[Rfam]
RNA sequence: UCAGGGAGUGUAAACAUCCUACACUCUCAGCUGGAGCAGAGCUGCCGCCGCUGGGAGUGGGGUGUUUGCGCUCUUUGG
Numbered sequence: 001u002c003a004g005g006g007a008g009u010g011u012a013a014a015c016a017u018c019c020u021a022c023a024c025u026c027u028c029a030g031c032u033g034g035a036g037c038a039g040a041g042c043u044g045c046c047g048c049c050g051c052u053g054g055g056a057g058u059g060g061g062g063u064g065u066u067u068g069c070g071c072u073c074u075u076u077g078g
Stems, first nucleotide, its partner, number of pairs: 002077005008071013023058009